[Rfam]
RNA sequence: GGCGUAAAGGGCGCGUAGGCGGGAACAUAAGUCAGAUGUGAAAUCCCGGAGCUCAACUCCGGAACAGCAUUUGAAACUAUAUUUCUUGAGGGUAGGCGGAGAAAACGGAAUUCCACAUGUAGCGGUGAAAUGCGUAGAUAUGUGGAAGAACAUCGGUGGCGAAGGCGGUUUUCUAGCUUAUUCCUGACGCUGAGGCGCGAAAGCAAGGGGAGCAAACAGGAUUAGAUACCCUGGUAGUCCUUGCCGUAAACGAUGUAUACUUGGUGUAGCUGGACUCAACCCCAGCUGUGCCGGAGCUAACGCGUUAAGUAUACCGCCUGGGGAGUACGCUCGCAAGGGUGAAACUCAAAAGAAU
Numbered sequence: 001g002g003c004g005u006a007a008a009g010g011g012c013g014c015g016u017a018g019g020c021g022g023g024a025a026c027a028u029a030a031g032u033c034a035g036a037u038g039u040g041a042a043a044u045c046c047c048g049g050a051g052c053u054c055a056a057c058u059c060c061g062g063a064a065c066a067g068c069a070u071u072u073g074a075a076a077c078u079a080u081a082u083u084u085c086u087u088g089a090g091g092g093u094a095g096g097c098g099g100a101g102a103a104a105a106c107g108g109a110a111u112u113c114c115a116c117a118u119g120u121a122g123c124g125g126u127g128a129a130a131u132g133c134g135u136a137g138a139u140a141u142g143u144g145g146a147a148g149a150a151c152a153u154c155g156g157u158g159g160c161g162a163a164g165g166c167g168g169u170u171u172u173c174u175a176g177c178u179u180a181u182u183c184c185u186g187a188c189g190c191u192g193a194g195g196c197g198c199g200a201a202a203g204c205a206a207g208g209g210g211a212g213c214a215a216a217c218a219g220g221a222u223u224a225g226a227u228a229c230c231c232u233g234g235u236a237g238u239c240c241u242u243g244c245c246g247u248a249a250a251c252g253a254u255g256u257a258u259a260c261u262u263g264g265u266g267u268a269g270c271u272g273g274a275c276u277c278a279a280c281c282c283c284a285g286c287u288g289u290g291c292c293g294g295a296g297c298u299a300a301c302g303c304g305u306u307a308a309g310u311a312u313a314c315c316g317c318c319u320g321g322g323g324a325g326u327a328c329g330c331u332c333g334c335a336a337g338g339g340u341g342a343a344a345c346u347c348a349a350a351a352g353a354a355u
Stems, first nucleotide, its partner, number of pairs: 001318003009315001011198004016192001018191003022085004027080002030078002032074008046062006089185003092181006100174007107151001111147008122133003159166002203244006212238002217233004255314006263292011296303002320347003329340004
The record is a 355-nucleotide part of an RNA from Parachlamydia sp. AcF125, which matches "Bacterial small subunit ribosomal RNA" in Rfam.
NCBI's taxonomy places the organism under Bacteria, Chlamydiota, Chlamydiia, Parachlamydiales, Parachlamydia.
The match comes from Rfam's covariance-model search (1551 bits).
The family is grouped with related families in Rfam's "SSU clan".
Pairs were carried over by alignment from the consensus structure, which is taken from published work.